RNA sequence: AGCAAAAUGAGGAGUUCAUACAAUCUGAAGUCUGAUGUUGAUACUAUCAUUAAUGGUCUUCAAAGUUCUCUGAUUGUU
Number, nucleotide and partner (000 for none) at each position: 001a078002g077003c076004a075005a074006a000007a000008u000009g000010a000011g000012g000013a000014g000015u000016u000017c000018a000019u000020a000021c000022a000023a000024u000025c000026u000027g000028a000029a000030g000031u000032c000033u000034g000035a000036u000037g000038u000039u000040g000041a000042u000043a000044c000045u000046a000047u000048c000049a000050u000051u000052a000053a000054u000055g000056g000057u000058c000059u000060u000061c000062a000063a000064a000065g000066u000067u000068c000069u000070c000071u000072g000073a000074u005075u004076g003077u002078u001
The family of this 78-nucleotide RNA sequence from Setaria italica is "Small nucleolar RNA R160".
The base pairs follow the family's consensus structure.
The literature on the family includes a 2003 paper in Nucleic Acids Res by Chen et al., "The high diversity of snoRNAs in plants: identification and comparative study of 120 snoRNA genes from Oryza sativa".
From the family's description: snoR160 is a C/D box small nucleolar RNA, which acts as a methylation guide for 25S ribosomal RNA in plants. snoR160 has been alternatively named snoZ270 in rice.
It scores 78 bits against the family's covariance model.